[Rfam]
Shown here is a 71-nucleotide RNA sequence from Monodelphis domestica, a member of the family "mir-34 microRNA precursor family". A reference for the family is Lim et al. (2003), "Vertebrate microRNA genes", Science. Human mir-34a was discovered computationally and later experimentally verified. The mature sequence is excised from the 5' arm of the hairpin. The source organism's lineage runs through Eukaryota, Vertebrata, Euteleostomi, Tetrapoda and Monodelphis. It scores 75 bits against the family's covariance model.
RNA sequence: GGUUUGUAGGCAGUGUAGUUAGCUGAUUGUAUUCUACUGCCUACAAUCACUAACUCCACUGCCAUCAAAAC
Numbered sequence: 001g002g003u004u005u006g007u008a009g010g011c012a013g014u015g016u017a018g019u020u021a022g023c024u025g026a027u028u029g030u031a032u033u034c035u036a037c038u039g040c041c042u043a044c045a046a047u048c049a050c051u052a053a054c055u056c057c058a059c060u061g062c063c064a065u066c067a068a069a070a071c
Base pairs, nucleotide, nucleotide: 003069004068005067006066009063010062012060013059014058015057017055018054019053020052021051022050024049025048026047027046028045029044030043031042
Dot-bracket structure: ..((((..((.((((.((((((.((((((((..........)))))))))))))).)))).))..))))..